[Rfam]
RNA sequence: GUGUUAUAUUUUCUCCAAGCUGACUUGUCUGGGUGCAUUGCAUAUGAUAAUCGGCCAAUGGGUUCUAUUAGAAAUGAUAGGGCCUUCCGUGUUGAGAAGGAGAAAUAUGAGAUGACUU
Numbered sequence: 001g002u003g004u005u006a007u008a009u010u011u012u013c014u015c016c017a018a019g020c021u022g023a024c025u026u027g028u029c030u031g032g033g034u035g036c037a038u039u040g041c042a043u044a045u046g047a048u049a050a051u052c053g054g055c056c057a058a059u060g061g062g063u064u065c066u067a068u069u070a071g072a073a074a075u076g077a078u079a080g081g082g083c084c085u086u087c088c089g090u091g092u093u094g095a096g097a098a099g100g101a102g103a104a105a106u107a108u109g110a111g112a113u114g115a116c117u118u
Base pairs, nucleotide, nucleotide: 004111011104012103013102014101015100016099019055020054021053022052023051025049027048028047029046033043034042035041036040060085061084062083063082064081065080066079067078068077069076070075086095087094